[Rfam]
RNA: Makes More Granules Regulator RNA (mmgR)
RNA sequence: GGAGCGGGCCUUUCAGGCAUCCUCUCCUAAUGACUUACGGGCUGGUUCUUCGGAGCCGGCCCUUUUUUUUGUCGGCG
Numbered sequence: 001g002g003a004g005c006g007g008g009c010c011u012u013u014c015a016g017g018c019a020u021c022c023u024c025u026c027c028u029a030a031u032g033a034c035u036u037a038c039g040g041g042c043u044g045g046u047u048c049u050u051c052g053g054a055g056c057c058g059g060c061c062c063u064u065u066u067u068u069u070u071g072u073c074g075g076c077g
Base pairs, nucleotide, nucleotide: 008018009017010016011015039062040061041060042059043058044057045056046055047054